[Rfam]
RNA: Qrr RNA
RNA sequence: UGACUUCAGCAAUGAGGUCACCUAGCCAACUGACGUUGUUAGUGAACCGAUUUGUUCACACUGUUUUCGGCCGAUUGAUUUAUCAAUCGGCCUUUUCUUU
Numbered sequence: 001u002g003a004c005u006u007c008a009g010c011a012a013u014g015a016g017g018u019c020a021c022c023u024a025g026c027c028a029a030c031u032g033a034c035g036u037u038g039u040u041a042g043u044g045a046a047c048c049g050a051u052u053u054g055u056u057c058a059c060a061c062u063g064u065u066u067u068c069g070g071c072c073g074a075u076u077g078a079u080u081u082a083u084c085a086a087u088c089g090g091c092c093u094u095u096u097c098u099u100u
Stems, first nucleotide, its partner, number of pairs: 001020006036070003042059006071090008